[Rfam]
RNA sequence: AGAGGCCCUCCGUGGCCAGGGCGGGACGCUUGCCUCAUCACUGCAGUGACGAAGCAAGCAUUCCGUCAGGCCACUCAUGCUGCCCGC
Numbered sequence: 001a002g003a004g005g006c007c008c009u010c011c012g013u014g015g016c017c018a019g020g021g022c023g024g025g026a027c028g029c030u031u032g033c034c035u036c037a038u039c040a041c042u043g044c045a046g047u048g049a050c051g052a053a054g055c056a057a058g059c060a061u062u063c064c065g066u067c068a069g070g071c072c073a074c075u076c077a078u079g080c081u082g083c084c085c086g087c
Base pairs, nucleotide, nucleotide: 004084005083006082012074013073014072015071016070017069020067021066022065023064024063025062026061028059029058030057031056032055033054038049039048040047041046
Rfam assigns this 87-nucleotide RNA sequence from Myotis davidii to the family "mir-9195 microRNA precursor family". The family's consensus secondary structure was predicted with RNAalifold. Rfam links the family to the GO terms RISC complex and miRNA-mediated post-transcriptional gene silencing. A search with the family's covariance model found it, with a score of 94 bits.